[Rfam]
Nucleotides: 101
Base pairs, nucleotide, nucleotide: 007088008087009086010085011051012050013049014048016045017028018027019026035044036043037042057082058081059080063076064075065074066073
Number, partner (000 for none) and nucleotide at each position: 001000g002000g003000c004000c005000u006000c007088a008087c009086c010085u011051c012050g013049g014048g015000g016045u017028g018027c019026c020000u021000u022000g023000a024000c025000c026019g027018g028017c029000u030000g031000a032000g033000a034000c035044g036043c037042g038000u039000u040000u041000g042037c043036g044035c045016g046000g047000a048014c049013c050012c051011g052000u053000a054000g055000a056000a057082c058081c059080u060000g061000a062000a063076c064075c065074g066073g067000g068000c069000a070000a071000u072000g073066c074065c075064g076063g077000c078000g079000g080059a081058g082057g083000g084000a085010a086009g087008g088007u089000c090000g091000a092000a093000c094000g095000c096000a097000u098000c099000u100000g101000g